Rfam assigns this 73-nucleotide RNA from Actinoplanes cyaneus to the family "tRNA". Its Rfam clan is "tRNA clan". The match comes from Rfam's covariance-model search (66 bits). The family's consensus secondary structure is taken from published work.
RNA sequence: GGGCUCGUAGCUCAGUUGGUAGAGCGCCGCUCUCGCACAGCGGAGGCAGCCGGUUCGACUCCGGCCGGGUCCA
Number, nucleotide and partner (000 for none) at each position: 001g072002g071003g070004c069005u068006c067007g066008u000009a000010g025011c024012u023013c022014a000015g000016u000017u000018g000019g000020u000021a000022g013023a012024g011025c010026g000027c043028c042029g041030c040031u039032c000033u000034c000035g000036c000037a000038c000039a031040g030041c029042g028043g027044a000045g000046g000047c000048a000049g065050c064051c063052g062053g061054u000055u000056c000057g000058a000059c000060u000061c053062c052063g051064g050065c049066c007067g006068g005069g004070u003071c002072c001073a000

About this RNA: The source organism's lineage runs through Bacteria, Actinomycetota, Actinomycetes, Micromonosporales and Actinoplanes.